[Rfam]
RNA sequence: UUUAAAAACGGCGAUGGAGUUCGCCUUAAACCGUCCAGCUCCAGCGGGACUGAUGACUCCUACUCUUAA
Numbered sequence: 001u002u003u004a005a006a007a008a009c010g011g012c013g014a015u016g017g018a019g020u021u022c023g024c025c026u027u028a029a030a031c032c033g034u035c036c037a038g039c040u041c042c043a044g045c046g047g048g049a050c051u052g053a054u055g056a057c058u059c060c061u062a063c064u065c066u067u068a069a
Stems, first nucleotide, its partner, number of pairs: 010025004016060006033050004
Dot-bracket structure: .........[[[[..((((((]]]].......((((..........))))....)))))).........
Shown here is a 69-nucleotide sequence from Candidatus Sulfobium mesophilum, a member of the family "Fluoride riboswitch aptamer (crcB RNA motif)". The organism belongs to Candidatus Sulfobium, within Bacteria. The base pairs follow the family's consensus structure, which is taken from published work. Its family is annotated with response to fluoride and positive regulation of gene expression in the Gene Ontology.